[Rfam]
RNA sequence: CCCGGUGUCUAAGUAGUAGUGCCGCAGGUAAGGGAAUUAUCAUUACCUGCUCACGCCUACUUGAACAACUGG
Numbered sequence: 001c002c003c004g005g006u007g008u009c010u011a012a013g014u015a016g017u018a019g020u021g022c023c024g025c026a027g028g029u030a031a032g033g034g035a036a037u038u039a040u041c042a043u044u045a046c047c048u049g050c051u052c053a054c055g056c057c058u059a060c061u062u063g064a065a066c067a068a069c070u071g072g
Stems, first nucleotide, its partner, number of pairs: 001072002004069001006067002010063007019054001024050007

mir-252 microRNA precursor family: a 72-nucleotide RNA from Chionoecetes opilio.
Pairs were carried over by alignment from the consensus structure, which was predicted with RNAalifold.
NCBI's taxonomy places the organism under Eukaryota, Opisthokonta, Decapoda, Majidae, Chionoecetes.
It scores 51 bits against the family's covariance model.